[Rfam]
RNA sequence: GCUGGCAAGUGAUGUGAAAAUCUAUAGCCUACACACUCAACGGAAAAUUUCCAUGUGUAAUCUCCGCUUAUUAUCUGAUGCCUGU
Numbered sequence: 001g002c003u004g005g006c007a008a009g010u011g012a013u014g015u016g017a018a019a020a021u022c023u024a025u026a027g028c029c030u031a032c033a034c035a036c037u038c039a040a041c042g043g044a045a046a047a048u049u050u051c052c053a054u055g056u057g058u059a060a061u062c063u064c065c066g067c068u069u070a071u072u073a074u075c076u077g078a079u080g081c082c083u084g085u
Base pairs, nucleotide, nucleotide: 004082005081006080007079
RNA: Small nucleolar RNA R16
Organism: Oryza meyeriana